[Rfam]
RNA sequence: GGCGGACGCGCGGGAGAAGGGGAGGUCAGCCUCCCUACCGAAGGAGCAACCGCCCCGGAAUCUCUCAGGUGCCCCAGACAAGGGGUGUGGA
Number, nucleotide and partner (000 for none) at each position: 001g000002g000003c000004g000005g000006a086007c085008g000009c083010g000011c000012g000013g079014g000015a000016g000017a000018a000019g000020g035021g034022g033023a032024g000025g000026u000027c000028a000029g000030c000031c000032u023033c022034c021035c020036u000037a070038c069039c068040g066041a065042a000043g000044g064045a063046g062047c000048a000049a000050c058051c057052g000053c000054c000055c000056c000057g051058g050059a000060a000061u000062c046063u045064c044065u041066c040067a000068g039069g038070u037071g000072c000073c000074c000075c000076a000077g000078a000079c013080a000081a000082g000083g009084g000085g007086u006087g000088u000089g000090g000091a000
This 91-nucleotide RNA sequence from Sphingomonas jatrophae belongs to the Rfam family "Glycine riboswitch aptamer". Rfam links the family to the GO term glycine biosynthetic process. The pairing is the family consensus, mapped onto this sequence. The source organism's lineage runs through Bacteria, Pseudomonadota, Alphaproteobacteria, Sphingomonadaceae and Sphingomonas. The match comes from Rfam's covariance-model search (37 bits).